[Rfam]
RNA sequence: UAUAGAAAAAGUCGAACCAUUUGAGAAGAUGGGGCGGAAAGCCUCAGGUCUUUUAAAAGAUAGCUGGGUUACCUAU
Numbered sequence: 001u002a003u004a005g006a007a008a009a010a011g012u013c014g015a016a017c018c019a020u021u022u023g024a025g026a027a028g029a030u031g032g033g034g035c036g037g038a039a040a041g042c043c044u045c046a047g048g049u050c051u052u053u054u055a056a057a058a059g060a061u062a063g064c065u066g067g068g069u070u071a072c073c074u075a076u
Base pairs, nucleotide, nucleotide: 012037013036017032018031019030020029021028022027040070041069042068043067045066046065047064048061049060050059051058052057
Dot-bracket structure: ...........((...((((((....))))))...))..((((.((((((((....)))))..)))))))......